A member of the RNA family "Mason-Pfizer monkey virus packaging signal" from Macaca fascicularis, 286 nucleotides long.
It scores 124 bits against the family's covariance model.
The base pairs follow the family's consensus structure, which was predicted with PFOLD.
The family's RNA type in Rfam is cis-regulatory element.
Gene Ontology term of the family: viral genome packaging.
The organism belongs to Macaca, within Eukaryota.
About the family: This family represents a group of sequences that are related to the Mason-Pfizer monkey virus (MPMV) packaging signal. The packaging signal is located in the 5' UTR and is required for specific RNA encapsidation.
RNA sequence: CGGCUUCCCAACAGGGACCUGAAACGCAGGGACUCAGUGAGGAAGAGGACUCCAAAGGACGGGUCUGAACUGCUAACUUAAGACAAAAGGAGUCAAAUUCUUCAUCACCAUGGAACCUGCCUGGCCUGAAUCGGCUGUAUUUGGACGCAUCCUAAAUGGGACAAGAAUUGCCAACAUGAAAUAUAUGUAGAGACAAUUAAAAGAGGCUUUGAAGACACGAGGGAGUAAAGGUUAAAGGUGUAAUGAUUUGUUUAAAUUUUUGAUUUUGUAAAGACACUUCUGCCUU
Numbered sequence: 001c002g003g004c005u006u007c008c009c010a011a012c013a014g015g016g017a018c019c020u021g022a023a024a025c026g027c028a029g030g031g032a033c034u035c036a037g038u039g040a041g042g043a044a045g046a047g048g049a050c051u052c053c054a055a056a057g058g059a060c061g062g063g064u065c066u067g068a069a070c071u072g073c074u075a076a077c078u079u080a081a082g083a084c085a086a087a088a089g090g091a092g093u094c095a096a097a098u099u100c101u102u103c104a105u106c107a108c109c110a111u112g113g114a115a116c117c118u119g120c121c122u123g124g125c126c127u128g129a130a131u132c133g134g135c136u137g138u139a140u141u142u143g144g145a146c147g148c149a150u151c152c153u154a155a156a157u158g159g160g161a162c163a164a165g166a167a168u169u170g171c172c173a174a175c176a177u178g179a180a181a182u183a184u185a186u187g188u189a190g191a192g193a194c195a196a197u198u199a200a201a202a203g204a205g206g207c208u209u210u211g212a213a214g215a216c217a218c219g220a221g222g223g224a225g226u227a228a229a230g231g232u233u234a235a236a237g238g239u240g241u242a243a244u245g246a247u248u249u250g251u252u253u254a255a256a257u258u259u260u261u262g263a264u265u266u267u268g269u270a271a272a273g274a275c276a277c278u279u280c281u282g283c284c285u286u
Stems, first nucleotide, its partner, number of pairs: 007031003014025001038046001099137001101134001105130001106128002108124003112120001147162001150160003169211001170207003218262003223259004229249006271286003275282002